The family of this 216-nucleotide sequence from Paramuricea clavata is "Small nucleolar RNA U3". Rfam's curators write: Small nucleolar RNAs (snoRNAs) are involved in the processing and modification of rRNA in the nucleolus. There are two main classes of snoRNAs: the box C/D class, and the box H/ACA class. Its Rfam clan is "U3 clan".
[Rfam]
RNA sequence: AAGACCGUACUUUUUAGGAUCAUUUCUAUAGUACGCGUCCCGUCUUUGUUCUCUAACAUAGACAACAUUCACAACCACGAUGAUGAGUGGUAGUGCUUUCUUCUGAGCGGGAAGCAGAUUACUAAGGUUGCUUUUACAGUGACGUUAGUAAUUAUUGAUGACCGUUCCCUUUCGCUCUUCGGAGCAAUGGGAGGAAGAAGGCGCAUUCAGAGUGGU
Numbered sequence: 001a002a003g004a005c006c007g008u009a010c011u012u013u014u015u016a017g018g019a020u021c022a023u024u025u026c027u028a029u030a031g032u033a034c035g036c037g038u039c040c041c042g043u044c045u046u047u048g049u050u051c052u053c054u055a056a057c058a059u060a061g062a063c064a065a066c067a068u069u070c071a072c073a074a075c076c077a078c079g080a081u082g083a084u085g086a087g088u089g090g091u092a093g094u095g096c097u098u099u100c101u102u103c104u105g106a107g108c109g110g111g112a113a114g115c116a117g118a119u120u121a122c123u124a125a126g127g128u129u130g131c132u133u134u135u136a137c138a139g140u141g142a143c144g145u146u147a148g149u150a151a152u153u154a155u156u157g158a159u160g161a162c163c164g165u166u167c168c169c170u171u172u173c174g175c176u177c178u179u180c181g182g183a184g185c186a187a188u189g190g191g192a193g194g195a196a197g198a199a200g201g202c203g204c205a206u207u208c209a210g211a212g213u214g215g216u
Base pairs, nucleotide, nucleotide: 003039004038005037006035007034008033009032010031011030015028016027017026018025019024047064048063049062051061052060074216075215076214077213078212093204094203095202096201097200098199099198100197101196102195103194104193107165108164109163117153118152119151120150123148125146126145127143128142129141130140131139168190169189170187171186173184175182176181